[Rfam]
RNA sequence: AUGGUGGAUUCUGAAAAACCUAUAAAACAGAGUAGGAA
Numbered sequence: 001a002u003g004g005u006g007g008a009u010u011c012u013g014a015a016a017a018a019c020c021u022a023u024a025a026a027a028c029a030g031a032g033u034a035g036g037a038a
Stems, first nucleotide, its partner, number of pairs: 003020003010037003

This 38-nucleotide RNA belongs to the Rfam family "DUF805b RNA". The base pairs follow the family's consensus structure, which is taken from published work. The family is grouped with related families in Rfam's "DUF805 clan". It is annotated as a cis-regulatory element.